[Rfam]
RNA sequence: UAUUAGGUUGGUGCAAAAGUAAUCGUGACUUUUGCCGUUGAAAGCAAUGGCAAAAACCACGGUUACUUUUGCACCAACCUAAUA
Numbered sequence: 001u002a003u004u005a006g007g008u009u010g011g012u013g014c015a016a017a018a019g020u021a022a023u024c025g026u027g028a029c030u031u032u033u034g035c036c037g038u039u040g041a042a043a044g045c046a047a048u049g050g051c052a053a054a055a056a057c058c059a060c061g062g063u064u065a066c067u068u069u070u071g072c073a074c075c076a077a078c079c080u081a082a083u084a
Stems, first nucleotide, its partner, number of pairs: 001084027030055011

Overview:
This 84-nucleotide RNA sequence from Sapajus apella belongs to the Rfam family "mir-548 microRNA precursor family". It scores 96 bits against the family's covariance model. Pairs were carried over by alignment from the consensus structure, which was predicted with WAR. Its family is annotated with RISC complex and miRNA-mediated post-transcriptional gene silencing in the Gene Ontology.